[Rfam]
Nucleotides: 323
Stems, first nucleotide, its partner, number of pairs: 001096002004093001007092001009089002015085001021082009031070002033066003038063004042058002112165001113163004117134001119132002122130001135157002142153002195265003204256002208252001216247001218245002222242004288323003294316003299309003
Number, partner (000 for none) and nucleotide at each position: 001096g002095g003000c004093g005000c006000a007092g008000c009089g010088a011000u012000c013000c014000a015085g016000c017000u018000g019000c020000a021082a022081c023080a024079u025078c026077u027076g028075u029074c030000a031070c032069c033066c034065c035064a036000c037000u038063g039062a040061u041060u042058g043057c044000c045000a046000g047000g048000g049000u050000u051000g052000a053000u054000u055000c056000a057043g058042c059000u060041g061040a062039u063038c064035u065034g066033g067000c068000u069032g070031g071000c072000u073000a074029g075028a076027c077026g078025g079024g080023u081022g082021u083000c084000c085015c086000c087000u088010u089009c090000c091000u092007c093004c094000u095002c096001c097000u098000c099000c100000c101000u102000c103000c104000a105000u106000g107000u108000g109000u110000a111000u112165c113163u114162c115161u116160c117134c118000c119132a120131a121000u122130g123000c124000u125000g126000c127000g128000c129000a130122c131120u132119u133000a134117g135157u136156c137000a138000a139000a140000g141000a142153g143152g144000c145000u146000g147000a148000c149000u150000u151000u152143c153142c154000c155000a156136g157135a158000u159000a160116g161115a162114g163113g164000a165112g166000u167000a168000c169000c170000a171000u172000u173000c174000u175000u176000c177000g178000g179000u180000c181000a182000a183000g184000u185000a186000u187000c188000u189000a190000c191000g192000a193000u194000a195265g196264c197263u198000g199000c200000a201000c202000a203000c204256c205255c206000c207000u208252g209000c210000c211000a212000g213000a214000a215000c216247c217000g218245u219244c220000a221000a222242a223241c224240a225239a226000g227000c228000u229000c230000a231000a232000a233000g234000u235000a236000c237000a238000g239225u240224u241223g242222u243000a244219g245218g246000a247216g248000a249000a250000c251000a252208u253000c254000a255205g256204g257000u258000a259000c260000u261000c262000a263197a264196g265195u266000u267000u268000c269000c270000a271000g272000g273000a274000g275000a276000g277000c278000a279000c280000a281000g282000g283000c284000g285000u286000g287000u288323g289322g290321c291000u292000u293000u294316g295315g296314g297000g298000u299309g300308g301307g302000g303000u304000g305000u306000u307301c308300c309299c310000u311000a312000c313000u314296c315295c316294u317000u318000u319000g320000u321290g322289u323288u
About this RNA
Shown here is a 323-nucleotide RNA sequence from Pelusios castaneus, a member of the family "7SK RNA". The source organism's lineage runs through Eukaryota, Opisthokonta, Eumetazoa, Euteleostomi and Pelusios. 7SK was discovered as an abundant small nuclear RNA in the mid-70s but a possible function has only recently been suggested. The family has 45 seed sequences and 49,373 matches in Rfam 15.1. The family's consensus secondary structure is taken from published work. On this family, see Wassarman and Steitz, Mol Cell Biol 1991: "Structural analyses of the 7SK ribonucleoprotein (RNP), the most abundant human small RNP of unknown function".